This 221-nucleotide RNA from Ipomoea nil belongs to the Rfam family "Early nodulin 40". For this family Rfam cites "Identification of conserved secondary structures and expansion segments in enod40 RNAs reveals new enod40 homologues in plants" (Gultyaev and Roussis, Nucleic Acids Res, 2007). Taxonomically the source falls in Ipomoea (Eukaryota, Viridiplantae, Tracheophyta, Gunneridae). It is annotated as a non-coding RNA gene. Pairs were carried over by alignment from the consensus structure, which is taken from published work. It scores 85 bits against the family's covariance model. Rfam links the family to the GO term nodulation.

[Rfam]
RNA sequence: AUGCAGUACUGGGAUGAAGCAAUCCAUGGAUCUUGAAAAAGCUAGCUAGGGGAAGAACAACUCCAGCUAGCCUGCUCAUACUUAGCCAUUUUCUUUUUCCCAGAUUUGAUGCUGCGGGAUCUUCAUCUGCAGGUUAAGCUAGGCAAAGGGUUUUGGCUAAUAAUGCAUGGUGAAAAACCGGCAAGUCACAGAAUGGCAAUCGACUCAGCUUUUAGAGUCUA
Numbered sequence: 001a002u003g004c005a006g007u008a009c010u011g012g013g014a015u016g017a018a019g020c021a022a023u024c025c026a027u028g029g030a031u032c033u034u035g036a037a038a039a040a041g042c043u044a045g046c047u048a049g050g051g052g053a054a055g056a057a058c059a060a061c062u063c064c065a066g067c068u069a070g071c072c073u074g075c076u077c078a079u080a081c082u083u084a085g086c087c088a089u090u091u092u093c094u095u096u097u098u099c100c101c102a103g104a105u106u107u108g109a110u111g112c113u114g115c116g117g118g119a120u121c122u123u124c125a126u127c128u129g130c131a132g133g134u135u136a137a138g139c140u141a142g143g144c145a146a147a148g149g150g151u152u153u154u155g156g157c158u159a160a161u162a163a164u165g166c167a168u169g170g171u172g173a174a175a176a177a178c179c180g181g182c183a184a185g186u187c188a189c190a191g192a193a194u195g196g197c198a199a200u201c202g203a204c205u206c207a208g209c210u211u212u213u214a215g216a217g218u219c220u221a
Base pairs, nucleotide, nucleotide: 048076049075090177091176092175094173105162107160202219203218204217205216206215